Alphaproteobacterial ar14: a 123-nucleotide RNA from Mesorhizobium hungaricum.
The family's RNA type in Rfam is small RNA.
Smr14C2 was renamed NfeR1 (Nodule Formation Efficiency RNA) highly expressed in salt stress and during the symbiotic interaction on legume roots.
The source organism's lineage runs through Bacteria, Pseudomonadati, Pseudomonadota, Phyllobacteriaceae and Mesorhizobium.
The match comes from Rfam's covariance-model search (85 bits).

RNA sequence: GAAUUUCGUCAAAGCCGACCUCCUCCCCGGCGAUGACGAAUAUGGUCGACCUCCUCCUCCUCCCUGAGGUCGACCGCCGAAACGGUGCCCGCCGCAUCCUCCUCCCAGCGGCGGGCAUUGUUC
Numbered sequence: 001g002a003a004u005u006u007c008g009u010c011a012a013a014g015c016c017g018a019c020c021u022c023c024u025c026c027c028c029g030g031c032g033a034u035g036a037c038g039a040a041u042a043u044g045g046u047c048g049a050c051c052u053c054c055u056c057c058u059c060c061u062c063c064c065u066g067a068g069g070u071c072g073a074c075c076g077c078c079g080a081a082a083c084g085g086u087g088c089c090c091g092c093c094g095c096a097u098c099c100u101c102c103u104c105c106c107a108g109c110g111g112c113g114g115g116c117a118u119u120g121u122u123c
Stems, first nucleotide, its partner, number of pairs: 006039003010035002014031003044075010085118011
Notes: Gene Ontology term of the family: biological process involved in symbiotic interaction.